[Rfam]
This 47-nucleotide RNA sequence from Planctomyces sp. SH-PL14 belongs to the Rfam family "Acido-Lenti-1 RNA". The source organism's lineage runs through Bacteria, Pseudomonadati, Planctomycetia, Planctomycetaceae and Planctomyces. The base pairs follow the family's consensus structure, which is taken from published work. Rfam classes the family as a small RNA.
RNA sequence: CCCACCCUUGAAAGGGUGGGCUAUUUUCUUUCGUCCCUGUCGGGACU
Numbered sequence: 001c002c003c004a005c006c007c008u009u010g011a012a013a014g015g016g017u018g019g020g021c022u023a024u025u026u027u028c029u030u031u032c033g034u035c036c037c038u039g040u041c042g043g044g045a046c047u
Base pairs, nucleotide, nucleotide: 001020002019003018004017005016006015007014008013033046034045035044036043037042